[Rfam]
RNA sequence: GGGAGUGCAUGGGGUUCUGGUGUCCCCCACGGACUUCAAAUCCGGUGUUGCCGCCCAAAAGGUGGCAUGGUGGGUUCGAUUCCCACACGCUCCC
Numbered sequence: 001g002g003g004a005g006u007g008c009a010u011g012g013g014g015u016u017c018u019g020g021u022g023u024c025c026c027c028c029a030c031g032g033a034c035u036u037c038a039a040a041u042c043c044g045g046u047g048u049u050g051c052c053g054c055c056c057a058a059a060a061g062g063u064g065g066c067a068u069g070g071u072g073g074g075u076u077c078g079a080u081u082c083c084c085a086c087a088c089g090c091u092c093c094c
Base pairs, nucleotide, nucleotide: 001094002093003092004091005090006089007088012027013026014025017022030044031043032042033041049067050066051065052064071085072084073083074082
Dot-bracket structure: (((((((....(((..(....)..)))..((((.......))))....((((...........))))...((((.......))))..)))))))
A member of the RNA family "Selenocysteine transfer RNA" from Dissulfurispira thermophila, 94 nucleotides long. The base pairs follow the family's consensus structure, which is taken from published work. It scores 65 bits against the family's covariance model.